[Rfam]
RNA: tRNA
Organism: Tybeckvirus tv521B
RNA sequence: CAGGAUAUAGCUCAAUUUGGUAAAGCGCGGAGUUUGGGGCUCCGAGAGUAUAGGUUCAAAUCCUAUUAUCCUGA
Numbered sequence: 001c002a003g004g005a006u007a008u009a010g011c012u013c014a015a016u017u018u019g020g021u022a023a024a025g026c027g028c029g030g031a032g033u034u035u036g037g038g039g040c041u042c043c044g045a046g047a048g049u050a051u052a053g054g055u056u057c058a059a060a061u062c063c064u065a066u067u068a069u070c071c072u073g074a
Stems, first nucleotide, its partner, number of pairs: 001073007010026003028044005050066005